[Rfam]
RNA sequence: UCUGCGUGAAAGACAUGGGUAGUGAGAUGUCCGCGUUUAUUCGCGUCUCACUACCUUGUCUUUCAUGUGGCG
Numbered sequence: 001u002c003u004g005c006g007u008g009a010a011a012g013a014c015a016u017g018g019g020u021a022g023u024g025a026g027a028u029g030u031c032c033g034c035g036u037u038u039a040u041u042c043g044c045g046u047c048u049c050a051c052u053a054c055c056u057u058g059u060c061u062u063u064c065a066u067g068u069g070g071c072g
Stems, first nucleotide, its partner, number of pairs: 008064008017056003021052009